[Rfam]
RNA sequence: CCCGCCACCAUGCCUGUCUUGUCCUGAAGUGACUGGUGUACUCCAGUGGUGAGCUGAGAGGAAUCCCCAGCUUAGGAAGCAGGGCUAUUCUGUUUGUGGAGAGCUCUGUGCCGAAAGGCUGGGAACAUUG
Numbered sequence: 001c002c003c004g005c006c007a008c009c010a011u012g013c014c015u016g017u018c019u020u021g022u023c024c025u026g027a028a029g030u031g032a033c034u035g036g037u038g039u040a041c042u043c044c045a046g047u048g049g050u051g052a053g054c055u056g057a058g059a060g061g062a063a064u065c066c067c068c069a070g071c072u073u074a075g076g077a078a079g080c081a082g083g084g085c086u087a088u089u090c091u092g093u094u095u096g097u098g099g100a101g102a103g104c105u106c107u108g109u110g111c112c113g114a115a116a117g118g119c120u121g122g123g124a125a126c127a128u129u130g
Base pairs, nucleotide, nucleotide: 005049006048007047008046018036019035021033022031065123066122067121069120071117072116073115075112076111080108081107082106083105084104085103088100089099090098
Shown here is a 130-nucleotide RNA from Gopherus evgoodei, a member of the family "Small nucleolar RNA SNORA65".
For this family Rfam cites "RNomics: an experimental approach that identifies 201 candidates for novel, small, non-messenger RNAs in mouse" (Huttenhofer et al., EMBO J, 2001).
It scores 98 bits against the family's covariance model.
Rfam describes the family as follows. U65 belongs to the H/ACA class of snoRNAs which are thought to guide the sites of modification of uridines to pseudouridines.